[Rfam]
RNA sequence: UAACUGGAGAGUUUGAUCCUGGCUCAGAACGAACGCUGGCGGCGUGCUUAACACAUGCAAGUCGAACGAGAAAGUUUCUUCGGAAAUGAGUAAAGUGGCGCACGGGUGAGUAACGCGUAGAUAACCUGUCCAGGUGAUCGGGAUAGCCCUUCGAAAGGGGGAUUAAUACCGGAUACGCUGGUUGUUUUUAAGGGCAAUCAGGAAAGGCGGCCUCUAUUUAUAAGCUGUCGCAUUUGGAGGGGUCUGCGUACCAUUAGUUUGUUGGUGGGGUAAUGGCCUACCAAGACUACGAUGGUUAACGGGUCUGAGAGGAUGAUCCGUCACACUGGCACUGAAACACGGGCCAGACUCCUACGGGAGGCAGCAGUGAGGAAUAUUGCGCAAUGGGGGAAACCCUGACGCAGCGACGCCGCGUGGGUGAGGAAGGCUUUCGGGUCGUAAAACCCUGUCAGAUGGGAAGAAAUGCAUGAGAGUUAAUACCCCUCAUGUUUGACGGUACCAUCAAAGGAAGCACCGGCUAACUCCGUGCCAGCAGCCGCGGUAAUACGGAGGGUGCAAGCGUUGUUCGGAAUCACUG
Numbered sequence: 001u002a003a004c005u006g007g008a009g010a011g012u013u014u015g016a017u018c019c020u021g022g023c024u025c026a027g028a029a030c031g032a033a034c035g036c037u038g039g040c041g042g043c044g045u046g047c048u049u050a051a052c053a054c055a056u057g058c059a060a061g062u063c064g065a066a067c068g069a070g071a072a073a074g075u076u077u078c079u080u081c082g083g084a085a086a087u088g089a090g091u092a093a094a095g096u097g098g099c100g101c102a103c104g105g106g107u108g109a110g111u112a113a114c115g116c117g118u119a120g121a122u123a124a125c126c127u128g129u130c131c132a133g134g135u136g137a138u139c140g141g142g143a144u145a146g147c148c149c150u151u152c153g154a155a156a157g158g159g160g161g162a163u164u165a166a167u168a169c170c171g172g173a174u175a176c177g178c179u180g181g182u183u184g185u186u187u188u189u190a191a192g193g194g195c196a197a198u199c200a201g202g203a204a205a206g207g208c209g210g211c212c213u214c215u216a217u218u219u220a221u222a223a224g225c226u227g228u229c230g231c232a233u234u235u236g237g238a239g240g241g242g243u244c245u246g247c248g249u250a251c252c253a254u255u256a257g258u259u260u261g262u263u264g265g266u267g268g269g270g271u272a273a274u275g276g277c278c279u280a281c282c283a284a285g286a287c288u289a290c291g292a293u294g295g296u297u298a299a300c301g302g303g304u305c306u307g308a309g310a311g312g313a314u315g316a317u318c319c320g321u322c323a324c325a326c327u328g329g330c331a332c333u334g335a336a337a338c339a340c341g342g343g344c345c346a347g348a349c350u351c352c353u354a355c356g357g358g359a360g361g362c363a364g365c366a367g368u369g370a371g372g373a374a375u376a377u378u379g380c381g382c383a384a385u386g387g388g389g390g391a392a393a394c395c396c397u398g399a400c401g402c403a404g405c406g407a408c409g410c411c412g413c414g415u416g417g418g419u420g421a422g423g424a425a426g427g428c429u430u431u432c433g434g435g436u437c438g439u440a441a442a443a444c445c446c447u448g449u450c451a452g453a454u455g456g457g458a459a460g461a462a463a464u465g466c467a468u469g470a471g472a473g474u475u476a477a478u479a480c481c482c483c484u485c486a487u488g489u490u491u492g493a494c495g496g497u498a499c500c501a502u503c504a505a506a507g508g509a510a511g512c513a514c515c516g517g518c519u520a521a522c523u524c525c526g527u528g529c530c531a532g533c534a535g536c537c538g539c540g541g542u543a544a545u546a547c548g549g550a551g552g553g554u555g556c557a558a559g560c561g562u563u564g565u566u567c568g569g570a571a572u573c574a575c576u577g
Stems, first nucleotide, its partner, number of pairs: 009025005027567004032563006039413006045406002047371001052369003056366003061099003066096002070091001074087005106324003115249008125241002130237007138172004146163001148161005178201010206229006250296003257287003262284008299321004303314004326347005349360004377403001379402003385398005416446004426437004450508001452503005460494001466488006511556005522551005532539002